This 137-nucleotide sequence from Maylandia zebra belongs to the Rfam family "Small nucleolar RNA SNORA5". The organism belongs to Maylandia zebra complex, within Eukaryota. Rfam classes the family as an H/ACA-box small nucleolar RNA. Gene Ontology terms of the family: RNA processing and nucleolus. About the family: ACA5 is a member of the H/ACA class of snoRNA that guide the sites of modification of uridines to pseudouridines. Its Rfam clan is "SNORA5 clan". A search with the family's covariance model found it, with a score of 85 bits.
RNA sequence: UGCAGCCUUGUCAAAUUCAGUGUGUUCUUUUAAGUGGACCUGACUGGCCAAAAUGGCUGCCACAGAAAAACUGUAGUUCAUGGGCUCCACUUCCUUGUACCAUGAGCAGUGGGGAUAAUUAUGUACUACAGACAAGU
Numbered sequence: 001u002g003c004a005g006c007c008u009u010g011u012c013a014a015a016u017u018c019a020g021u022g023u024g025u026u027c028u029u030u031u032a033a034g035u036g037g038a039c040c041u042g043a044c045u046g047g048c049c050a051a052a053a054u055g056g057c058u059g060c061c062a063c064a065g066a067a068a069a070a071c072u073g074u075a076g077u078u079c080a081u082g083g084g085c086u087c088c089a090c091u092u093c094c095u096u097g098u099a100c101c102a103u104g105a106g107c108a109g110u111g112g113g114g115a116u117a118a119u120u121a122u123g124u125a126c127u128a129c130a131g132a133c134a135a136g137u
Stems, first nucleotide, its partner, number of pairs: 002060004018046004024039004073129005078123001085114007